Rfam assigns this 76-nucleotide sequence from Pseudolysobacter antarcticus to the family "Xanthomonas sRNA sX9". For this family Rfam cites "Genome-wide transcriptome analysis of the plant pathogen Xanthomonas identifies sRNAs with putative virulence functions" (Schmidtke et al., Nucleic Acids Res, 2011). The source organism's lineage runs through Bacteria, Pseudomonadati, Lysobacterales, Rhodanobacteraceae and Pseudolysobacter. The family has 16 seed sequences and 309 matches in Rfam 15.1. By type it is a small RNA.
RNA sequence: AUGUACAGAAAGUACACUCCGGUUCCUCCGCUCCGUCCUCACACAAACUUCCUUCGCUUGCCACGUUUUUGAGGCC
Numbered sequence: 001a002u003g004u005a006c007a008g009a010a011a012g013u014a015c016a017c018u019c020c021g022g023u024u025c026c027u028c029c030g031c032u033c034c035g036u037c038c039u040c041a042c043a044c045a046a047a048c049u050u051c052c053u054u055c056g057c058u059u060g061c062c063a064c065g066u067u068u069u070u071g072a073g074g075c076c
Base pairs, nucleotide, nucleotide: 002016003015004014005013006012020035021034022033025030048073049072050071